[Rfam]
RNA sequence: UAAUACGCUUUUCCCGAAUCAGGCCAGGAAGCUCCGGCAUCCUGUAGACUGCGGCGUACAUCCAGCCGGCUGCCUGAUUCACCGCUUUGAGAUGUACGGAGCUUAAGAGC
Numbered sequence: 001u002a003a004u005a006c007g008c009u010u011u012u013c014c015c016g017a018a019u020c021a022g023g024c025c026a027g028g029a030a031g032c033u034c035c036g037g038c039a040u041c042c043u044g045u046a047g048a049c050u051g052c053g054g055c056g057u058a059c060a061u062c063c064a065g066c067c068g069g070c071u072g073c074c075u076g077a078u079u080c081a082c083c084g085c086u087u088u089g090a091g092a093u094g095u096a097c098g099g100a101g102c103u104u105a106a107g108a109g110c
Stems, first nucleotide, its partner, number of pairs: 010101002014099001016080009025044005049069001052068003085094001087092001